Rfam assigns this 118-nucleotide RNA from Canis lupus to the family "mir-8834 microRNA precursor family".
RNA sequence: AGGGGAACAGUCCCCCAGUGCCAGGGGCGGGCAGCAUCUGGAAACCUCGGAUUCAGUGCGCUCCCCGCAAGGAACUCCGGAGCUCUCCGUCUGCCGGGCACUGAGGCUCCGGGGCGGA
Number, nucleotide and partner (000 for none) at each position: 001a000002g110003g109004g108005g107006a000007a000008c000009a102010g101011u100012c098013c097014c096015c000016c000017a000018g000019u000020g091021c000022c089023a000024g087025g086026g085027g000028c000029g000030g000031g000032c000033a084034g083035c082036a000037u081038c080039u079040g078041g077042a076043a000044a000045c072046c071047u070048c000049g000050g000051a000052u000053u000054c000055a000056g000057u000058g000059c000060g000061c000062u000063c000064c000065c000066c000067g000068c000069a000070a047071g046072g045073a000074a000075c000076u042077c041078c040079g039080g038081a037082g035083c034084u033085c026086u025087c024088c000089g022090u000091c020092u000093g000094c000095c000096g014097g013098g012099c000100a011101c010102u009103g000104a000105g000106g000107c005108u004109c003110c002111g000112g000113g000114g000115c000116g000117g000118a000
Lineage of the source: Eukaryota > Eumetazoa > Boreoeutheria > Carnivora > Canis lupus.